[Rfam]
RNA: Bacterial small subunit ribosomal RNA, nucleotides 1 to 557
Organism: Paenalicyclobacillus ferrooxydans
RNA sequence: CUUUGAGAGUUUGAUCCUGGCUCAGGACGAACGCUGGCGGCGUGCCUAAUACAUGCAAGUCGCGCGGACUUCUUCGGAAGUCAGCGGCGGACGGGUGAGUAACACGUGGGCAAUCUGCCUCUUAGACUGGAAUAACGCCUGGAAACGGGUGCUAAUGCCAGAUAGAGCAACGGACAGGCAUCUGUUUGUUGGGAAAGGUGCUACGGCAUCGCUAAGAGAGGAGCCCGCGGCGCAUUAGCUAGUUGGUGGGGUAACGGCCUACCAAGGCGACGAUGCGUAGCCGACCUGAGAGGGUGACCGGCCACACUGGGACUGAGACACGGCCCAGACUCCUACGGGAGGCAGCAGUAGGGAAUCUUCGGCAAUGGGCGCAAGCCUGACCGAGCAACGCCGCGUGAGCGAAGAAGGCCUUCGGGUUGUAAAGCUCAGUCAUCCGGGAAGAGAGACCAGGGGAGGGAAUGCCCCUGGAGAGACGGUACCGGGAGAGGAAGCCCCGGCUAACUACGUGCCAGCAGCCGCGGUAAUACGUAGGGGGCAAGCGUUGUCCGGAAUCACUG
Number, nucleotide and partner (000 for none) at each position: 001c000002u000003u000004u000005g000006a000007g023008a022009g021010u020011u019012u000013g000014a000015u000016c000017c000018u000019g011020g010021c009022u008023c007024a000025g547026g546027a545028c544029g000030a543031a542032c541033g540034c539035u538036g000037g394038c393039g392040g391041c390042g389043u387044g386045c352046c000047u000048a000049a000050u350051a349052c348053a000054u347055g346056c345057a000058a000059g088060u087061c086062g000063c000064g085065c084066g000067g082068a081069c080070u079071u078072c077073u000074u000075c000076g000077g072078a071079a070080g069081u068082c067083a000084g065085c064086g061087g060088c059089g000090g000091a000092c000093g000094g000095g305096u304097g303098a000099g000100u000101a000102a000103c000104a000105c229106g228107u227108g226109g225110g224111c223112a000113a000114u222115c221116u000117g000118c000119c218120u217121c216122u215123u214124a213125g212126a000127c161128u160129g159130g158131a000132a000133u000134a000135a000136c151137g150138c149139c148140u147141g146142g000143a000144a000145a000146c141147g140148g139149g138150u137151g136152c000153u000154a000155a000156u000157g000158c130159c129160a128161g127162a000163u000164a000165g000166a000167g000168c191169a190170a189171c188172g187173g186174a000175c184176a183177g182178g000179c000180a000181u000182c177183u176184g175185u000186u173187u172188g171189u170190u169191g168192g000193g000194a000195a000196a000197g210198g209199u208200g207201c206202u000203a000204c000205g000206g201207c200208a199209u198210c197211g000212c125213u124214a123215a122216g121217a120218g119219a000220g000221g115222a114223g111224c110225c109226c108227g107228c106229g105230g000231c277232g276233c275234a000235u000236u000237a000238g268239c267240u266241a000242g000243u265244u264245g263246g262247u261248g260249g259250g258251g000252u000253a000254a000255c000256g000257g000258c250259c249260u248261a247262c246263c245264a244265a243266g240267g239268c238269g000270a000271c000272g000273a000274u000275g233276c232277g231278u000279a000280g302281c301282c300283g299284a295285c294286c293287u292288g000289a000290g000291a000292g287293g286294g285295u284296g000297a000298c000299c283300g282301g281302c280303c097304a096305c095306a000307c328308u327309g326310g325311g324312a000313c000314u000315g000316a000317g000318a000319c000320a000321c000322g000323g000324c311325c310326c309327a308328g307329a000330c341331u340332c339333c338334u000335a000336c000337g000338g333339g332340a331341g330342g000343c000344a000345g056346c055347a054348g052349u051350a050351g000352g045353g000354a000355a000356u000357c000358u384359u000360c383361g382362g381363c000364a000365a000366u379367g378368g377369g376370c375371g000372c000373a000374a000375g370376c369377c368378u367379g366380a000381c362382c361383g360384a358385g000386c044387a043388a000389c042390g041391c040392c039393g038394c037395g000396u000397g427398a426399g425400c424401g000402a000403a000404g000405a000406a000407g418408g417409c416410c415411u000412u000413c000414g000415g410416g409417u408418u407419g000420u000421a000422a000423a000424g400425c399426u398427c397428a000429g000430u000431c488432a000433u483434c482435c481436g480437g479438g000439a000440a000441g474442a000443g000444a000445g000446a000447c468448c467449a466450g465451g464452g463453g000454a000455g000456g000457g000458a000459a000460u000461g000462c000463c452464c451465c450466u449467g448468g447469a000470g000471a000472g000473a000474c441475g000476g000477u000478a000479c437480c436481g435482g434483g433484a000485g000486a000487g000488g431489a000490a000491g536492c535493c534494c533495c532496g000497g000498c000499u000500a000501a000502c531503u530504a529505c528506g527507u000508g000509c000510c000511a000512g519513c518514a000515g000516c000517c000518g513519c512520g000521g000522u000523a000524a000525u000526a000527c506528g505529u504530a503531g502532g495533g494534g493535g492536c491537a000538a035539g034540c033541g032542u031543u030544g028545u027546c026547c025548g000549g000550a000551a000552u000553c000554a000555c000556u000557g000